Shown here is a 117-nucleotide RNA sequence, a member of the family "ALIL pseudoknot". The family's consensus secondary structure is taken from published work. By type it is a cis-regulatory element. A reference for the family is Mazauric et al. (2008), "Apical loop-internal loop RNA pseudoknots: a new type of stimulator of -1 translational frameshifting in bacteria", J Biol Chem.

RNA sequence: CGCGUUUUUCGCCCAGGCGGAGCUCGACCGCCGACUCAAGUCCUGAGGGACUUCGUCGACAGGCAUCGCGACCUGUUCGGGGUCGAGCCGAUCUGCGAGGUUUUGCAGAUCGCCCCG
Numbered sequence: 001c002g003c004g005u006u007u008u009u010c011g012c013c014c015a016g017g018c019g020g021a022g023c024u025c026g027a028c029c030g031c032c033g034a035c036u037c038a039a040g041u042c043c044u045g046a047g048g049g050a051c052u053u054c055g056u057c058g059a060c061a062g063g064c065a066u067c068g069c070g071a072c073c074u075g076u077u078c079g080g081g082g083u084c085g086a087g088c089c090g091a092u093c094u095g096c097g098a099g100g101u102u103u104u105g106c107a108g109a110u111c112g113c114c115c116c117g
Stems, first nucleotide, its partner, number of pairs: 016032005078117005089112002092109007